[Rfam]
RNA sequence: CCGUUAAGUAAUAACCUAAUAGACAGAGUGUCACGUAAUUACGUUUUAUUAUAGACAUCUCAUUAUCAUGUCAUCACCCUCAAUGACGUGGCACUGACAUGUCAAUGAUUGGGUGUAAUGACGUGACACUCCGUCUGUUAUACCAUCACUUAAUAGAA
Numbered sequence: 001c002c003g004u005u006a007a008g009u010a011a012u013a014a015c016c017u018a019a020u021a022g023a024c025a026g027a028g029u030g031u032c033a034c035g036u037a038a039u040u041a042c043g044u045u046u047u048a049u050u051a052u053a054g055a056c057a058u059c060u061c062a063u064u065a066u067c068a069u070g071u072c073a074u075c076a077c078c079c080u081c082a083a084u085g086a087c088g089u090g091g092c093a094c095u096g097a098c099a100u101g102u103c104a105a106u107g108a109u110u111g112g113g114u115g116u117a118a119u120g121a122c123g124u125g126a127c128a129c130u131c132c133g134u135c136u137g138u139u140a141u142a143c144c145a146u147c148a149c150u151u152a153a154u155a156g157a158a
Base pairs, nucleotide, nucleotide: 001156003154004153005152006151007150008149009148011146012145017140018139019138020137021136022135023134024133026131027130028129029128030127031126032125033124034123035122036121038119039118040117041116042115043114044113045112046111048109049108050107051106052105054103055102056101057100058099070087071086072085073084074083
About this RNA: Rfam assigns this 158-nucleotide sequence from Glycine max to the family "MIR4371 microRNA precursor family". Rfam links the family to the GO terms miRNA-mediated post-transcriptional gene silencing and RISC complex.